[Rfam]
RNA: RNase MRP
Nucleotides: 424
Stems, first nucleotide, its partner, number of pairs: 002424006008417004014354006022066006037054001039052005072409003076406004148326003154322006160315003168308002171305001292301003356393006
Number, partner (000 for none) and nucleotide at each position: 001000u002424c003423c004422u005421c006420g007419c008417u009416c010415g011414a012000a013000g014354a015353a016352u017351c018350g019349c020000a021000a022066c023065g024064a025063a026062g027061c028000a029000c030000a031000c032000g033000c034000a035000c036000a037054g038000a039052g040051u041050g042049c043048c044000u045000c046000c047000g048043g049042g050041c051040a052039u053000c054037u055000c056000g057000c058000a059000u060000c061027g062026c063025u064024u065023u066022g067000g068000g069000a070000g071000a072409a073408a074407g075000u076406c077405c078404c079403c080000g081000g082000a083000c084000a085000c086000c087000g088000g089000u090000u091000c092000u093000u094000u095000g096000g097000a098000c099000c100000g101000c102000a103000c104000u105000u106000u107000c108000a109000g110000c111000a112000a113000c114000g115000a116000a117000c118000c119000g120000c121000c122000a123000u124000a125000g126000a127000a128000g129000c130000g131000c132000g133000g134000c135000c136000u137000c138000c139000c140000a141000c142000c143000a144000c145000u146000u147000u148326g149325g150324c151000g152000u153000u154322c155321u156320u157319c158318a159317c160315u161314c162313u163000c164000u165000u166000g167000u168308c169307c170000g171305c172000c173000u174000g175000c176000a177000c178000u179000c180000u181000u182000u183000u184000c185000c186000c187000g188000a189000u190000c191000u192000u193000u194000c195000c196000u197000a198000a199000c200000g201000c202000g203000a204000c205000g206000c207000g208000u209000g210000g211000a212000g213000a214000a215000g216000c217000u218000g219000g220000c221000a222000c223000c224000a225000g226000g227000a228000u229000g230000a231000u232000g233000a234000u235000a236000u237000g238000a239000g240000u241000c242000c243000g244000c245000u246000g247000g248000u249000c250000a251000u252000c253000u254000u255000g256000c257000u258000c259000g260000c261000c262000g263000c264000c265000g266000a267000g268000g269000g270000a271000u272000u273000g274000a275000c276000g277000a278000g279000g280000g281000u282000c283000a284000a285000g286000a287000g288000g289000a290000g291000g292301a293300c294299a295000g296000a297000g298000c299294u300293g301292u302000u303000g304000a305171g306000g307169g308168g309000c310000g311000u312000u313162g314161g315160g316000u317159g318158u319157g320156g321155a322154g323000g324150g325149u326148c327000u328000u329000c330000u331000c332000g333000u334000c335000c336000a337000g338000u339000u340000u341000a342000u343000g344000g345000u346000u347000a348000u349019g350018c351017g352016a353015u354014u355000g356393c357392u358391u359390u360389u361388g362000c363000g364000c365000g366000u367000c368000u369000c370000g371000g372000u373000g374000a375000u376000a377000c378000g379000g380000g381000a382000c383000g384000g385000c386000g387000g388361c389360a390359a391358g392357g393356g394000u395000a396000a397000c398000u399000c400000a401000a402000u403079g404078g405077g406076g407074c408073u409072u410000a411000u412000u413000c414011u415010u416009g417008a418000c419007g420006c421005g422004a423003g424002g